[Rfam]
RNA sequence: UGGGGUUAUCAAGUGUAACAGCAACUCCAUGUGGACUGUGUAUGAACUUCCAGUGGAGAUGCUGUUACUUUUGAUGGUCAC
Numbered sequence: 001u002g003g004g005g006u007u008a009u010c011a012a013g014u015g016u017a018a019c020a021g022c023a024a025c026u027c028c029a030u031g032u033g034g035a036c037u038g039u040g041u042a043u044g045a046a047c048u049u050c051c052a053g054u055g056g057a058g059a060u061g062c063u064g065u066u067a068c069u070u071u072u073g074a075u076g077g078u079c080a081c
Stems, first nucleotide, its partner, number of pairs: 009074003015068008025058006032052003
A member of the RNA family "mir-194 microRNA precursor family" from Sciurus vulgaris, 81 nucleotides long.
The organism belongs to Sciurus, within Eukaryota.
A reference for the family is Michael et al. (2003), "Reduced accumulation of specific microRNAs in colorectal neoplasia", Mol Cancer Res.
Rfam links the family to the GO terms RISC complex and miRNA-mediated post-transcriptional gene silencing.
The family has 46 seed sequences and 936 matches in Rfam 15.1.